[Rfam]
RNA sequence: AAAGAUGCCCAUAAUGGGAGUAGUACCCCAACCAGGAGCAACUUUUCCAUAUUCAGAAUUU
Numbered sequence: 001a002a003a004g005a006u007g008c009c010c011a012u013a014a015u016g017g018g019a020g021u022a023g024u025a026c027c028c029c030a031a032c033c034a035g036g037a038g039c040a041a042c043u044u045u046u047c048c049a050u051a052u053u054c055a056g057a058a059u060u061u
Stems, first nucleotide, its partner, number of pairs: 017045005023039002026036002
This 61-nucleotide sequence from Tribonema minus belongs to the Rfam family "Plastid-psbN 5UTR RNA". NCBI's taxonomy places the organism under Eukaryota, Stramenopiles, Tribonematales, Tribonemataceae, Tribonema. The family's consensus secondary structure was predicted with LocARNA. On this family, see Richter et al., Plant Commun 2023: "Retrograde signaling in plants: A critical review focusing on the GUN pathway and beyond". Rfam describes the family as follows. Plastid psbN is a non-coding RNA (ncRNA) recognised in plastids. It was reported as a conserved 11 stem-loop in the prime untranslated region (5UTR) of psbN genes.